RNA sequence: AGCGAAAAGGCAAACCCGUCGCAAGGCGGGGACGCAAAGCCACGGGACCCACGACGGUCAGCCGGGCUACCGAAC
Numbered sequence: 001a002g003c004g005a006a007a008a009g010g011c012a013a014a015c016c017c018g019u020c021g022c023a024a025g026g027c028g029g030g031g032a033c034g035c036a037a038a039g040c041c042a043c044g045g046g047a048c049c050c051a052c053g054a055c056g057g058u059c060a061g062c063c064g065g066g067c068u069a070c071c072g073a074a075c
Base pairs, nucleotide, nucleotide: 010035011034015030016029017028018027019026020025033061038068039067040066041065043064044063045062046059047058048057
RNA: c-di-GMP-I-GGC riboswitch aptamer
Organism: Actinotalea fermentans